RNA sequence: AACCCCCUGCAAUGUGCGUGAUUGUACGAUAGACUUUGUCCUAACGCAUAUAGAAAGGGAACUCACACUGAUACCGGUGCGCAGGUUCCUCGUCAGUAAGGAAAAGCCUGAAGGUAUUAACUGAGUGCCCACUUUUGAACCAAUGGUUCAAAGCCUUUAAAACAACACGGCAAUUUGCGGGGGCAAC
Numbered sequence: 001a002a003c004c005c006c007c008u009g010c011a012a013u014g015u016g017c018g019u020g021a022u023u024g025u026a027c028g029a030u031a032g033a034c035u036u037u038g039u040c041c042u043a044a045c046g047c048a049u050a051u052a053g054a055a056a057g058g059g060a061a062c063u064c065a066c067a068c069u070g071a072u073a074c075c076g077g078u079g080c081g082c083a084g085g086u087u088c089c090u091c092g093u094c095a096g097u098a099a100g101g102a103a104a105a106g107c108c109u110g111a112a113g114g115u116a117u118u119a120a121c122u123g124a125g126u127g128c129c130c131a132c133u134u135u136u137g138a139a140c141c142a143a144u145g146g147u148u149c150a151a152a153g154c155c156u157u158u159a160a161a162a163c164a165a166c167a168c169g170g171c172a173a174u175u176u177g178c179g180g181g182g183g184c185a186a187c
Stems, first nucleotide, its partner, number of pairs: 004183008013172003017169003032155001034153002037150002040146002057130003061126005069119007081107002086103005

A member of the RNA family "6S / SsrS RNA" from Desulfotignum phosphitoxidans, 187 nucleotides long. Rfam 15.1 lists 5,006 matches to the family in 4,638 species. E. coli 6S RNA was the first non coding RNA to be sequenced, but its function was unknown until recently. It consists of 184 nucleotides that fold into an extended hairpin structure with a large single-stranded internal bulge. The 6S RNA specifically associates with RNA polymerase holoenzyme containing the sigma70 specificity factor. This interaction represses expression from a sigma70-dependent promoter during stationary phase. 6S RNA homologs have recently been identified in most bacterial genomes. NCBI's taxonomy places the organism under Bacteria, Thermodesulfobacteriota, Desulfobacterales, Desulfotignum, Desulfotignum phosphitoxidans. By type it is a non-coding RNA gene. The base pairs follow the family's consensus structure, which is taken from published work. On this family, see Wassarman and Storz, Cell 2000: "6S RNA regulates E. coli RNA polymerase activity".